The record is an 87-nucleotide sequence from Panicum miliaceum, which matches "mir-156 microRNA precursor family" in Rfam. The literature on the family includes a 2001 paper in Cell by Ambros, "microRNAs: tiny regulators with great potential". About the family: This family represents the plant microRNA (miRNA) precursor mir-156. A search with the family's covariance model found it, with a score of 63 bits.
RNA sequence: UUGACAGAAGAGAGUGAGCACACGGCGUGAUGAACAACAUAACAUUGUAUGUUGUCCUCGCCGCGUGCUCACUCCUCUUUCUGUCGG
Dot-bracket structure: (((((((((((((((((((((.(((((...............................))))).))))))))).))).)))))))))
Numbered sequence: 001u002u003g004a005c006a007g008a009a010g011a012g013a014g015u016g017a018g019c020a021c022a023c024g025g026c027g028u029g030a031u032g033a034a035c036a037a038c039a040u041a042a043c044a045u046u047g048u049a050u051g052u053u054g055u056c057c058u059c060g061c062c063g064c065g066u067g068c069u070c071a072c073u074c075c076u077c078u079u080u081c082u083g084u085c086g087g
Stems, first nucleotide, its partner, number of pairs: 001087009010077003013073009023063005

The source organism's lineage runs through Eukaryota, Petrosaviidae, Poales, Panicoideae and Panicum sect. Panicum.